mir-320 microRNA precursor family: a 76-nucleotide sequence from Pan troglodytes.
It scores 73 bits against the family's covariance model.
For this family Rfam cites "Many novel mammalian microRNA candidates identified by extensive cloning and RAKE analysis" (Berezikov et al., Genome Res, 2006).
The organism belongs to Pan, within Eukaryota.
Pairs were carried over by alignment from the consensus structure, which was predicted with RNAalifold.
Rfam links the family to the GO terms RISC complex, negative regulation of gene expression and cellular response to glucose stimulus.
[Rfam]
RNA sequence: AACUAGAUUGGCCUUCUCUUCCCGGUUCUUCCUGGAGUUGGGAAAAGCUGGGUUGAGGGAGCGUUAAAAAAAAAUU
Numbered sequence: 001a002a003c004u005a006g007a008u009u010g011g012c013c014u015u016c017u018c019u020u021c022c023c024g025g026u027u028c029u030u031c032c033u034g035g036a037g038u039u040g041g042g043a044a045a046a047g048c049u050g051g052g053u054u055g056a057g058g059g060a061g062c063g064u065u066a067a068a069a070a071a072a073a074a075u076u
Stems, first nucleotide, its partner, number of pairs: 014059005021052005029044006